[Rfam]
RNA: BsrF
RNA sequence: GCGAUGAGCUCGUUUGCGUAAGACGGACAAGCACUCCUUCGGGGGAACAUGCUGUGAACAUGGCUUGGACGCCGCAAAGUAUGAAAAAACACGUUACCCAAAGGUAACGUG
Numbered sequence: 001g002c003g004a005u006g007a008g009c010u011c012g013u014u015u016g017c018g019u020a021a022g023a024c025g026g027a028c029a030a031g032c033a034c035u036c037c038u039u040c041g042g043g044g045g046a047a048c049a050u051g052c053u054g055u056g057a058a059c060a061u062g063g064c065u066u067g068g069a070c071g072c073c074g075c076a077a078a079g080u081a082u083g084a085a086a087a088a089a090c091a092c093g094u095u096a097c098c099c100a101a102a103g104g105u106a107a108c109g110u111g
Stems, first nucleotide, its partner, number of pairs: 014077005024071002028067005035043002048062002051059001090111009